[Rfam]
Rfam assigns this 140-nucleotide sequence from Merluccius polli to the family "Small nucleolar RNA SNORD10".
Lineage of the source: Eukaryota > Paracanthopterygii > Gadariae > Merlucciidae > Merluccius.
A search with the family's covariance model found it, with a score of 69 bits.
RNA sequence: GUGUAAUGAUGAAAUCCAUGCGUGUCAACUGACUCUGGAAAAGUCCUGGUGCUCUGUGGCACCGGUCGGCGUUCUGCCGGCCGGAGCGCAGCAGGGCAUCGGCUUCCGGGGCCAUGAUCAGAGACUAACUGGCUGAAUAC
Numbered sequence: 001g002u003g004u005a006a007u008g009a010u011g012a013a014a015u016c017c018a019u020g021c022g023u024g025u026c027a028a029c030u031g032a033c034u035c036u037g038g039a040a041a042a043g044u045c046c047u048g049g050u051g052c053u054c055u056g057u058g059g060c061a062c063c064g065g066u067c068g069g070c071g072u073u074c075u076g077c078c079g080g081c082c083g084g085a086g087c088g089c090a091g092c093a094g095g096g097c098a099u100c101g102g103c104u105u106c107c108g109g110g111g112c113c114a115u116g117a118u119c120a121g122a123g124a125c126u127a128a129c130u131g132g133c134u135g136a137a138u139a140c
Stems, first nucleotide, its partner, number of pairs: 001140004047101009